Overview:
Rfam assigns this 120-nucleotide RNA sequence to the family "LOOT RNA". By type it is a small RNA.
Nucleotides: 120
Base pairs, nucleotide, nucleotide: 002034003033004032009028010027011026012025013024014023015022042083043082044081045080046079047078048077049076050075051074058072059071060070061069085104086103087102088101089100090099091098092097105120106119107118108117109116110115
Number, partner (000 for none) and nucleotide at each position: 001000c002034g003033c004032c005000u006000a007000a008000c009028c010027c011026u012025u013024a014023u015022g016000g017000u018000u019000u020000u021000c022015u023014g024013u025012a026011a027010g028009g029000u030000a031000u032004g033003g034002c035000a036000c037000a038000a039000a040000a041000a042083c043082c044081u045080u046079u047078c048077a049076c050075a051074g052000c053000a054000u055000c056000a057000a058072g059071c060070u061069c062000g063000u064000c065000g066000u067000c068000a069061g070060a071059g072058c073000a074051c075050u076049g077048u078047g079046a080045a081044a082043g083042g084000u085104c086103a087102u088101a089100u090099c091098c092097c093000g094000a095000a096000a097092g098091g099090g100089g101088u102087a103086u104085g105120g106119g107118u108117c109116u110115c111000g112000c113000a114000a115110g116109a117108g118107a119106u120105c
The sequence is in the family's curated seed alignment.